[Rfam]
RNA: mir-9261 microRNA precursor family
RNA sequence: AACAAUUUGUCCCGCGUCCCGAGGCGUUUUAAAAAAGUUCAAAAAGAUUUUUGUCCAAAAAUCGGGACUUUUUAAAAACGCCUCGGGACGCGGGACAAAUUGUUAA
Numbered sequence: 001a002a003c004a005a006u007u008u009g010u011c012c013c014g015c016g017u018c019c020c021g022a023g024g025c026g027u028u029u030u031a032a033a034a035a036a037g038u039u040c041a042a043a044a045a046g047a048u049u050u051u052u053g054u055c056c057a058a059a060a061a062u063c064g065g066g067a068c069u070u071u072u073u074a075a076a077a078a079c080g081c082c083u084c085g086g087g088a089c090g091c092g093g094g095a096c097a098a099a100u101u102g103u104u105a106a
Stems, first nucleotide, its partner, number of pairs: 001104030032073009